RNA sequence: UUGCUGUGAUGACUUCUUAGGACACCCUUGAUUUUAUCAUGAAAAGCAUCAAGUUCUGAGCAAU
Numbered sequence: 001u002u003g004c005u006g007u008g009a010u011g012a013c014u015u016c017u018u019a020g021g022a023c024a025c026c027c028u029u030g031a032u033u034u035u036a037u038c039a040u041g042a043a044a045a046g047c048a049u050c051a052a053g054u055u056c057u058g059a060g061c062a063a064u
Stems, first nucleotide, its partner, number of pairs: 001063004